[Rfam]
RNA sequence: AGGUAGUGAUAGUGUUAAAGGCUCAGAAAUUUUAAAGCCCCGCUUCAUCGGGGCUUUUUGUUAUUUUCUCGCCGCACCUUAGGUGCUAGAACUGGGCUUUACGCCCUUUUUUU
Numbered sequence: 001a002g003g004u005a006g007u008g009a010u011a012g013u014g015u016u017a018a019a020g021g022c023u024c025a026g027a028a029a030u031u032u033u034a035a036a037g038c039c040c041c042g043c044u045u046c047a048u049c050g051g052g053g054c055u056u057u058u059u060g061u062u063a064u065u066u067u068c069u070c071g072c073c074g075c076a077c078c079u080u081a082g083g084u085g086c087u088a089g090a091a092c093u094g095g096g097c098u099u100u101a102c103g104c105c106c107u108u109u110u111u112u113u
Stems, first nucleotide, its partner, number of pairs: 034057009094106004
RNA: Gammaprotebacteria rimP leader